[Rfam]
RNA: Purine riboswitch aptamer
Organism: Bacillus sp. V5-8f
RNA sequence: AAUAUCUAUAAAAUGAUUCUUCGUAUAAUAUUGGGGAUAUGGCCCAAAAGUUUCUACCAGGCUGCCGUGAACAGCUUGACUACGAUGCAAGUAAGGGGAGGC
Numbered sequence: 001a002a003u004a005u006c007u008a009u010a011a012a013a014u015g016a017u018u019c020u021u022c023g024u025a026u027a028a029u030a031u032u033g034g035g036g037a038u039a040u041g042g043c044c045c046a047a048a049a050g051u052u053u054c055u056a057c058c059a060g061g062c063u064g065c066c067g068u069g070a071a072c073a074g075c076u077u078g079a080c081u082a083c084g085a086u087g088c089a090a091g092u093a094a095g096g097g098g099a100g101g102c
Stems, first nucleotide, its partner, number of pairs: 019087001021085005029049001031047005058078007